[Rfam]
RNA: ylbH leader
Organism: Lentibacillus sp. JNUCC-1
RNA sequence: AUAAAAAAACCUGCAGACAUAGAUCUGCAGGCUCUUUUUUGUUUUCUUCCGGAAAACAAAAAAGCAAAGGGAGAGGAGAAACCGGAAGAAAUACUUAGGGGGAAGUCUAAGCAUCUUCCGAAU
Number, nucleotide and partner (000 for none) at each position: 001a000002u000003a000004a000005a000006a000007a000008a000009a000010c031011c030012u029013g028014c027015a026016g025017a024018c000019a000020u000021a000022g000023a000024u017025c016026u015027g014028c013029a012030g011031g010032c071033u070034c069035u068036u067037u000038u000039u000040u000041g057042u056043u055044u054045u053046c052047u000048u000049c000050c000051g000052g046053a045054a044055a043056a042057c041058a000059a000060a000061a000062a000063a000064g000065c000066a000067a036068a035069g034070g033071g032072a000073g000074a000075g000076g000077a000078g000079a000080a000081a000082c000083c120084g119085g118086a117087a000088g116089a000090a114091a000092u000093a000094c111095u110096u109097a108098g000099g000100g000101g000102g000103a000104a000105g000106u000107c000108u097109a096110a095111g094112c000113a000114u090115c000116u088117u086118c085119c084120g083121a000122a000123u000